[Rfam]
Nucleotides: 103
Stems, first nucleotide, its partner, number of pairs: 002098001005095005016033004035082003038078002042076001044074001048069004
Number, partner (000 for none) and nucleotide at each position: 001000g002098c003000a004000g005095a006094u007093c008092u009091g010000a011000a012000a013000a014000g015000c016033g017032a018031g019030c020000c021000g022000c023000u024000g025000c026000c027000g028000u029000g030019g031018c032017u033016c034000c035082g036081c037080c038078g039077a040000a041000g042076g043000u044074g045000c046000a047000a048069g049068c050067c051066g052000g053000g054000c055000c056000c057000g058000g059000u060000g061000g062000g063000u064000c065000a066051c067050g068049g069048u070000g071000a072000a073000g074044c075000u076042c077039u078038c079000a080037g081036g082035u083000u084000c085000c086000g087000a088000u089000g090000a091009c092008a093007g094006a095005u096000g097000g098002g099000g100000a101000g102000a103000a

Record summary
A member of the RNA family "Glycine riboswitch aptamer" from Streptomyces palmae, 103 nucleotides long. This family represents the bacterial glycine riboswitch. Glycine riboswitches usually consist of two metabolite-binding aptamers domains with similar structures in tandem. Taxonomically the source falls in Streptomyces (Bacteria, Bacillati, Actinomycetota, Actinomycetes). It scores 41 bits against the family's covariance model.